[Rfam]
RNA sequence: CAAGCCUGCAAGGAUCAGAAGGUCUGAACAGGUCCCUCAGAUCCGCCGAAAGGUUGAACUGAGAUGAAAGGGUGGUUUUUAUGGAUGUCUUUUGUCCACCCGUCAAAGCCCUCCAUACCUCUCGCUGGCGAGAAAUUUGGAGAGGAAUCAAAAACUAGUCCUAGUU
Numbered sequence: 001c002a003a004g005c006c007u008g009c010a011a012g013g014a015u016c017a018g019a020a021g022g023u024c025u026g027a028a029c030a031g032g033u034c035c036c037u038c039a040g041a042u043c044c045g046c047c048g049a050a051a052g053g054u055u056g057a058a059c060u061g062a063g064a065u066g067a068a069a070g071g072g073u074g075g076u077u078u079u080u081a082u083g084g085a086u087g088u089c090u091u092u093u094g095u096c097c098a099c100c101c102g103u104c105a106a107a108g109c110c111c112u113c114c115a116u117a118c119c120u121c122u123c124g125c126u127g128g129c130g131a132g133a134a135a136u137u138u139g140g141a142g143a144g145g146a147a148u149c150a151a152a153a154a155c156u157a158g159u160c161c162u163a164g165u166u
Base pairs, nucleotide, nucleotide: 007030008029011025012024014023015022016021035066036063037062038061039060040059042057043056047052084160085159086158087155088154090153091152092151093150094149109145110144111142112141113140114139120133121132122131123130124129